[Rfam]
Nucleotides: 133
Base pairs, nucleotide, nucleotide: 011026012025013024014023015022016021028060029059030058036053037052038051039049040048098120099119100118101117102116103115104114105113106112107111
Number, partner (000 for none) and nucleotide at each position: 001000a002000a003000g004000a005000a006000u007000a008000a009000g010000a011026a012025g013024a014023a015022g016021c017000a018000c019000c020000c021016g022015c023014u024013u025012c026011u027000c028060a029059c030058c031000u032000g033000a034000a035000u036053g037052a038051c039049g040048c041000u042000u043000u044000u045000a046000u047000a048040g049039u050000a051038g052037u053036u054000g055000a056000c057000a058030g059029g060028u061000c062000a063000u064000a065000c066000g067000a068000a069000a070000a071000c072000a073000a074000c075000u076000u077000u078000u079000u080000u081000u082000a083000a084000u085000u086000u087000g088000u089000u090000u091000c092000g093000u094000u095000a096000a097000g098120u099119g100118u101117g102116g103115g104114u105113g106112a107111a108000u109000c110000a111107u112106u113105c114104g115103c116102c117101c118100a119099c120098a121000c122000u123000u124000u125000u126000u127000u128000a129000u130000u131000g132000c133000u